Source information:
L2-Alphaproteobacteria ribosomal protein leader: a 69-nucleotide RNA sequence from Aliigemmobacter aestuarii. For this family Rfam cites "Discovery of 20 novel ribosomal leader candidates in bacteria and archaea" (Eckert and Weinberg, BMC Microbiol, 2020). Lineage of the source: Bacteria > Pseudomonadota > Rhodobacterales > Paracoccaceae > Aliigemmobacter.

RNA sequence: GGGGAUCUUCGGAGCCCUAUAACCCCGGGUCAGGCCCUACCUGACCCUCAAGCUGACGGAAGACAGAAA
Number, nucleotide and partner (000 for none) at each position: 001g018002g017003g016004g015005a000006u014007c000008u012009u000010c000011g000012g008013a000014g006015c004016c003017c002018u001019a000020u000021a000022a000023c000024c000025c000026c000027g047028g046029g045030u044031c043032a042033g041034g000035c000036c000037c000038u000039a000040c000041c033042u032043g031044a030045c029046c028047c027048u000049c000050a000051a000052g000053c000054u000055g000056a000057c000058g000059g000060a000061a000062g000063a000064c000065a000066g000067a000068a000069a000